The family of this 70-nucleotide RNA sequence from Loktanella atrilutea is "Singlet oxygen resistance RNA X". About the family: SorX (RSs2461)like SorY is a singlet oxygen induced sRNA that counteracts oxidative stress by targeting mRNA for a transporter in Rhodobacter.

[Rfam]
RNA sequence: GUCCCGCGUCACCGGGUCAUGUGACACCCUCCCUGUUGGACUGACCCGGGCCCGGUGCCCGGGUUUUUUU
Dot-bracket structure: .......(((((........)))))..................((((((((.....))))))))......
Numbered sequence: 001g002u003c004c005c006g007c008g009u010c011a012c013c014g015g016g017u018c019a020u021g022u023g024a025c026a027c028c029c030u031c032c033c034u035g036u037u038g039g040a041c042u043g044a045c046c047c048g049g050g051c052c053c054g055g056u057g058c059c060c061g062g063g064u065u066u067u068u069u070u
Stems, first nucleotide, its partner, number of pairs: 008025005044064008